[Rfam]
RNA sequence: GUACCCGUAGCUCAGUUGGAAGAGCGUCAGUUUCCGAAGCUGAAGGUCGCCGGUUCGAACCCAGUCGGGUGCG
Number, nucleotide and partner (000 for none) at each position: 001g072002u071003a070004c069005c068006c067007g066008u000009a000010g025011c024012u023013c022014a000015g000016u000017u000018g000019g000020a000021a000022g013023a012024g011025c010026g000027u043028c042029a041030g040031u039032u000033u000034c000035c000036g000037a000038a000039g031040c030041u029042g028043a027044a000045g000046g000047u000048c000049g065050c064051c000052g062053g061054u000055u000056c000057g000058a000059a000060c000061c053062c052063a000064g050065u049066c007067g006068g005069g004070u003071g002072c001073g000